[Rfam]
RNA sequence: CACCGUUCUCAGGGCGGGGCGAAACUCCCCACCGGCGGUAUGCAGAUCCGAUCUGCGAGCCCGCGAGCGCAACGGGGUUCGUACUGGAAAUCCGUUGGUCAGCAGAUCUGGUGAGACGCCAGAGCCGACGGUUACAGUCCGGAUGAAAGAGGACGAGC
Numbered sequence: 001c002a003c004c005g006u007u008c009u010c011a012g013g014g015c016g017g018g019g020c021g022a023a024a025c026u027c028c029c030c031a032c033c034g035g036c037g038g039u040a041u042g043c044a045g046a047u048c049c050g051a052u053c054u055g056c057g058a059g060c061c062c063g064c065g066a067g068c069g070c071a072a073c074g075g076g077g078u079u080c081g082u083a084c085u086g087g088a089a090a091u092c093c094g095u096u097g098g099u100c101a102g103c104a105g106a107u108c109u110g111g112u113g114a115g116a117c118g119c120c121a122g123a124g125c126c127g128a129c130g131g132u133u134a135c136a137g138u139c140c141g142g143a144u145g146a147a148a149g150a151g152g153a154c155g156a157g158c
Stems, first nucleotide, its partner, number of pairs: 004155007017029003031138002033127002035064004059125002067103002107123005129141003
Notes
A member of the RNA family "FMN riboswitch aptamer (RFN element)" from Sedimentitalea nanhaiensis, 158 nucleotides long. The source organism's lineage runs through Bacteria, Pseudomonadota, Alphaproteobacteria, Paracoccaceae and Sedimentitalea. A search with the family's covariance model found it, with a score of 107 bits.